The record is a 76-nucleotide sequence from Domibacillus mangrovi, which matches "Bacillaceae-1 RNA" in Rfam. The family's RNA type in Rfam is small RNA. A search with the family's covariance model found it, with a score of 47 bits.
RNA sequence: UAAACAGGAACUCAGGUAAAGGGCGCCGCGUCCUGCGGCAAUACCUGAGUGACCAGGCUCUGCCCGUUAAUGCGGG
Numbered sequence: 001u002a003a004a005c006a007g008g009a010a011c012u013c014a015g016g017u018a019a020a021g022g023g024c025g026c027c028g029c030g031u032c033c034u035g036c037g038g039c040a041a042u043a044c045c046u047g048a049g050u051g052a053c054c055a056g057g058c059u060c061u062g063c064c065c066g067u068u069a070a071u072g073c074g075g076g
Stems, first nucleotide, its partner, number of pairs: 011049007025039005053076002056073001